Source information:
This 104-nucleotide sequence from Marinisporobacter balticus belongs to the Rfam family "Glycine riboswitch aptamer".
RNA sequence: AUGAGGAUAGCGAGAGAUAUCUUUGUGAAGAUAGCCGAAGGAGCAAUAUAAAAAGCGCUAACUUUUUAUAGAAACUUUCAGGCAAAAAGGAUCGCUAUUGGAUG
Numbered sequence: 001a002u003g004a005g006g007a008u009a010g011c012g013a014g015a016g017a018u019a020u021c022u023u024u025g026u027g028a029a030g031a032u033a034g035c036c037g038a039a040g041g042a043g044c045a046a047u048a049u050a051a052a053a054a055g056c057g058c059u060a061a062c063u064u065u066u067u068a069u070a071g072a073a074a075c076u077u078u079c080a081g082g083c084a085a086a087a088a089g090g091a092u093c094g095c096u097a098u099u100g101g102a103u104g
Base pairs, nucleotide, nucleotide: 006099007098008097009096010095011094012093013092019032020031021030022029034083035082036081037079038078041077042076043075047070048069049068050067051066052065053064054063055062